[Rfam]
RNA sequence: UUCCUGUGAUGAUUUGCCAUGCUAAUACUGAGGCAGCAAGGAGCCUUUUAGGUUCUGCGCUGGCCACAACUGAGUGUCACAUGCUUUACUGAGGAGG
Numbered sequence: 001u002u003c004c005u006g007u008g009a010u011g012a013u014u015u016g017c018c019a020u021g022c023u024a025a026u027a028c029u030g031a032g033g034c035a036g037c038a039a040g041g042a043g044c045c046u047u048u049u050a051g052g053u054u055c056u057g058c059g060c061u062g063g064c065c066a067c068a069a070c071u072g073a074g075u076g077u078c079a080c081a082u083g084c085u086u087u088a089c090u091g092a093g094g095a096g097g
Stems, first nucleotide, its partner, number of pairs: 001096004041055005